This 127-nucleotide RNA sequence from Flavobacterium psychrotolerans belongs to the Rfam family "Bacteroidete tryptophan peptide leader RNA". Its family is annotated with S-adenosylmethionine metabolic process and regulation of gene expression in the Gene Ontology. The family's RNA type in Rfam is cis-regulatory leader. The base pairs follow the family's consensus structure, which is taken from published work.
RNA sequence: UUGUCACUCAAAAUUAAUACAUGAACACAAUAUUAAAUAAUUCUUGGUGGUGGAGCAGUUUGCGUCAAACGUCGUGAAAUAGUCUACUAUUGAAUAUAUUUAAACAAAAAUAUCAAAAGGGCUUGUC
Numbered sequence: 001u002u003g004u005c006a007c008u009c010a011a012a013a014u015u016a017a018u019a020c021a022u023g024a025a026c027a028c029a030a031u032a033u034u035a036a037a038u039a040a041u042u043c044u045u046g047g048u049g050g051u052g053g054a055g056c057a058g059u060u061u062g063c064g065u066c067a068a069a070c071g072u073c074g075u076g077a078a079a080u081a082g083u084c085u086a087c088u089a090u091u092g093a094a095u096a097u098a099u100u101u102a103a104a105c106a107a108a109a110a111u112a113u114c115a116a117a118a119g120g121g122c123u124u125g126u127c
Stems, first nucleotide, its partner, number of pairs: 036101002040097002044093004049088004056082001058080003062072003